[Rfam]
RNA: L31-Actinobacteria ribosomal protein leader
Organism: Amycolatopsis cihanbeyliensis
RNA sequence: CCGGCACCGGUUCACCCCGCUGACAUCCCGCGGGGACCCGGCGGCC
Numbered sequence: 001c002c003g004g005c006a007c008c009g010g011u012u013c014a015c016c017c018c019g020c021u022g023a024c025a026u027c028c029c030g031c032g033g034g035g036a037c038c039c040g041g042c043g044g045c046c
Stems, first nucleotide, its partner, number of pairs: 003046003007041004015035006022028001